[Rfam]
RNA sequence: GUGGGCUACGGGGACAUGCACCCGGUGACGAUUGGUGGGAAGAUCGUGGGCUCGCUGUGCGCAAUCGCGGGCGUGCUGACCAUCGCCUUACCCGUGCCAGUGAUCGUGUCCAAU
Numbered sequence: 001g002u003g004g005g006c007u008a009c010g011g012g013g014a015c016a017u018g019c020a021c022c023c024g025g026u027g028a029c030g031a032u033u034g035g036u037g038g039g040a041a042g043a044u045c046g047u048g049g050g051c052u053c054g055c056u057g058u059g060c061g062c063a064a065u066c067g068c069g070g071g072c073g074u075g076c077u078g079a080c081c082a083u084c085g086c087c088u089u090a091c092c093c094g095u096g097c098c099a100g101u102g103a104u105c106g107u108g109u110c111c112a113a114u
Base pairs, nucleotide, nucleotide: 001114002113004111005110007108008107009106010105011104014101015100018097019096020095021094037077038076040074050062051061
Annotation: A member of the RNA family "Potassium channel RNA editing signal" from Liparis tanakae, 114 nucleotides long. Gene Ontology term of the family: adenosine to inosine editing. NCBI's taxonomy places the organism under Eukaryota, Vertebrata, Actinopterygii, Teleostei, Liparis. Rfam classes the family as a cis-regulatory element.